[Rfam]
RNA sequence: GGUGAUCCUUGACUAGGAUAUAAAAAGAACGUGUGUACAUGAAUCCAGUGAAUACUUGUACCCGUAUUUUUAUAUCCGAGCCAAGGAUUGCC
Numbered sequence: 001g002g003u004g005a006u007c008c009u010u011g012a013c014u015a016g017g018a019u020a021u022a023a024a025a026a027g028a029a030c031g032u033g034u035g036u037a038c039a040u041g042a043a044u045c046c047a048g049u050g051a052a053u054a055c056u057u058g059u060a061c062c063c064g065u066a067u068u069u070u071u072a073u074a075u076c077c078g079a080g081c082c083a084a085g086g087a088u089u090g091c092c
Stems, first nucleotide, its partner, number of pairs: 003090009013080002016077009030064002033061005